[Rfam]
RNA sequence: UCCAGUUUCUCGAUCUCUUUGGUUGUACAAAGUGGUAUGGCACUUCUCAAUAGUCUGCUCAUACCGCUUUUCGGCUAAAGGAAUCGAGUCUUUGGUGU
Number, nucleotide and partner (000 for none) at each position: 001u097002c000003c095004a000005g093006u000007u000008u000009c088010u087011c086012g085013a084014u083015c000016u081017c080018u079019u078020u077021g076022g075023u074024u073025g072026u000027a000028c000029a070030a069031a068032g067033u066034g065035g064036u063037a062038u061039g060040g058041c057042a000043c000044u000045u000046c000047u000048c000049a000050a000051u000052a000053g000054u000055c000056u000057g041058c040059u000060c039061a038062u037063a036064c035065c034066g033067c032068u031069u030070u029071u000072c025073g024074g023075c022076u021077a020078a019079a018080g017081g016082a000083a014084u013085c012086g011087a010088g009089u000090c000091u000092u000093u005094g000095g003096u000097g001098u000
RNA: mir-244 microRNA precursor family
Organism: Caenorhabditis remanei